[Rfam]
RNA: Small nucleolar RNA Z105
Organism: Kalanchoe fedtschenkoi
RNA sequence: GCGUAAUGAUGAAGAACCGUUUUACGUUUCUGAUUUCUAAUGACUGAAUCAAAACCUCCUACUCAUUCUGA
Numbered sequence: 001g002c003g004u005a006a007u008g009a010u011g012a013a014g015a016a017c018c019g020u021u022u023u024a025c026g027u028u029u030c031u032g033a034u035u036u037c038u039a040a041u042g043a044c045u046g047a048a049u050c051a052a053a054a055c056c057u058c059c060u061a062c063u064c065a066u067u068c069u070g071a
Base pairs, nucleotide, nucleotide: 006066007065008064009063028047029046031042